The record is an 86-nucleotide RNA from Cephalotus follicularis, which matches "Small nucleolar RNA snoR27" in Rfam. On this family, see Brown et al., RNA 2001: "Multiple snoRNA gene clusters from Arabidopsis". The base pairs follow the family's consensus structure, which was predicted with WAR. It is annotated as a C/D-box small nucleolar RNA. Gene Ontology terms of the family: RNA processing and nucleolus. A search with the family's covariance model found it, with a score of 59 bits. The family has 6 seed sequences and 649 matches in Rfam 15.1.
RNA sequence: AAUGGAUCUAUGUUGUUAUUGAUAUAUAUGUGUUAUCUAUCUGCAACUUCCUAAAAGGAAUUGAAAAACACAUACGGAGAUCUAAU
Number, nucleotide and partner (000 for none) at each position: 001a086002a000003u084004g083005g082006a081007u080008c000009u000010a000011u000012g000013u000014u000015g000016u000017u000018a000019u000020u000021g000022a000023u000024a000025u000026a000027u000028a000029u000030g000031u000032g000033u000034u000035a000036u000037c000038u000039a000040u000041c000042u000043g000044c000045a000046a000047c000048u000049u000050c000051c000052u000053a000054a000055a000056a000057g000058g000059a000060a000061u000062u000063g000064a000065a000066a000067a000068a000069c000070a000071c000072a000073u000074a000075c000076g000077g000078a000079g000080a007081u006082c005083u004084a003085a000086u001